A member of the RNA family "mir-1 microRNA precursor family" from Ladona fulva, 77 nucleotides long. A search with the family's covariance model found it, with a score of 47 bits. NCBI's taxonomy places the organism under Eukaryota, Eumetazoa, Hexapoda, Anisoptera, Ladona. This family represents the microRNA (miRNA) mir-1 family. miRNAs are transcribed as ~70nt precursors (modelled here) and subsequently processed by the Dicer enzyme to give a ~22nt product. In this case the mature sequence comes from the 3' arm of the precursor. The extents of the hairpin precursors are not generally known and are estimated based on hairpin prediction. The products are thought to have regulatory roles through complementarity to mRNA. The involvement of Dicer in miRNA processing suggests a relationship with the phenomenon of RNA interference. miRNAs are numbered based on the sequence of the mature RNA. This family also contains the mir-206 from human, which appears to be related to mir-1. A reference for the family is Ambros (2001), "microRNAs: tiny regulators with great potential", Cell.
RNA sequence: AUGAAAAAUAAAAACUUCGUAAAUUUCCACACUAUUAUUAAAAUAGUGUGGAAGUUUACGAAGUUUUUAUUUUUCAU
Number, nucleotide and partner (000 for none) at each position: 001a000002u000003g000004a000005a000006a000007a071008a070009u069010a068011a067012a066013a065014a064015c063016u062017u061018c060019g059020u058021a057022a056023a055024u054025u053026u000027c051028c050029a049030c048031a047032c000033u000034a000035u000036u000037a000038u000039u000040a000041a000042a000043a000044u000045a000046g000047u031048g030049u029050g028051g027052a000053a025054g024055u023056u022057u021058a020059c019060g018061a017062a016063g015064u014065u013066u012067u011068u010069a009070u008071u007072u000073u000074u000075c000076a000077u000